[Rfam]
RNA sequence: UCCCAAUGAGGAAAUUUGUGCCUAUCUUACUAGCUGUCCUGGUACCAGAACCUGCAAAGGUGAACCCACUGGUAUCUGCAGCAUGAGAGGAGGAGAACAUGCUCCAAGAGGAGCAGUCUGAUGGGAC
Numbered sequence: 001u002c003c004c005a006a007u008g009a010g011g012a013a014a015u016u017u018g019u020g021c022c023u024a025u026c027u028u029a030c031u032a033g034c035u036g037u038c039c040u041g042g043u044a045c046c047a048g049a050a051c052c053u054g055c056a057a058a059g060g061u062g063a064a065c066c067c068a069c070u071g072g073u074a075u076c077u078g079c080a081g082c083a084u085g086a087g088a089g090g091a092g093g094a095g096a097a098c099a100u101g102c103u104c105c106a107a108g109a110g111g112a113g114c115a116g117u118c119u120g121a122u123g124g125g126a127c
Stems, first nucleotide, its partner, number of pairs: 001126004